[Rfam]
RNA: Small nucleolar RNA SNORA32
Organism: Pongo abelii
RNA sequence: AGGUGCCAGCCAAGGCAACUCUUAAAAGAUGGAUAGCUUCUCUUUUGCUGUGGAUGUGACCACAAAACAUUUCCCACUUGGUUUGCUAUCUGCUACCUUGCUCUUAGCCAGCCUAUUGGGAACAUUU
Numbered sequence: 001a002g003g004u005g006c007c008a009g010c011c012a013a014g015g016c017a018a019c020u021c022u023u024a025a026a027a028g029a030u031g032g033a034u035a036g037c038u039u040c041u042c043u044u045u046u047g048c049u050g051u052g053g054a055u056g057u058g059a060c061c062a063c064a065a066a067a068c069a070u071u072u073c074c075c076a077c078u079u080g081g082u083u084u085g086c087u088a089u090c091u092g093c094u095a096c097c098u099u100g101c102u103c104u105u106a107g108c109c110a111g112c113c114u115a116u117u118g119g120g121a122a123c124a125u126u127u
Base pairs, nucleotide, nucleotide: 003060004059007056010053011052012051031048034047035046036045073120074119075118076117080113081112082111083110091106092105